[Rfam]
RNA sequence: CUGUUUGCCGAUGGAGCAUCAUCAAGAUUCACAAACUUUAUCUAGGGCUAGUGGGUGGAGUUGAUGGUGGCUUUUGGUGGUCCCUUUUGCUUCAACCCAAAUGGGCCUUUGAUAUGGGAAUCUUGAUGAUGCUGCAGCGGCAAUAAA
Numbered sequence: 001c002u003g004u005u006u007g008c009c010g011a012u013g014g015a016g017c018a019u020c021a022u023c024a025a026g027a028u029u030c031a032c033a034a035a036c037u038u039u040a041u042c043u044a045g046g047g048c049u050a051g052u053g054g055g056u057g058g059a060g061u062u063g064a065u066g067g068u069g070g071c072u073u074u075u076g077g078u079g080g081u082c083c084c085u086u087u088u089g090c091u092u093c094a095a096c097c098c099a100a101a102u103g104g105g106c107c108u109u110u111g112a113u114a115u116g117g118g119a120a121u122c123u124u125g126a127u128g129a130u131g132c133u134g135c136a137g138c139g140g141c142a143a144u145a146a147a
Stems, first nucleotide, its partner, number of pairs: 010138001012136002015133016032116002